[Rfam]
RNA: Makes More Granules Regulator RNA (mmgR)
Organism: Cohaesibacter gelatinilyticus
RNA sequence: UAUCGCAGCCCUAUAUGGGCGUUUCCUCCUUAGACUUUCAGGGCCGUUAUGCGGCCCUUUCUUUUUGCCUGA
Numbered sequence: 001u002a003u004c005g006c007a008g009c010c011c012u013a014u015a016u017g018g019g020c021g022u023u024u025c026c027u028c029c030u031u032a033g034a035c036u037u038u039c040a041g042g043g044c045c046g047u048u049a050u051g052c053g054g055c056c057c058u059u060u061c062u063u064u065u066u067g068c069c070u071g072a
Stems, first nucleotide, its partner, number of pairs: 008020004041057007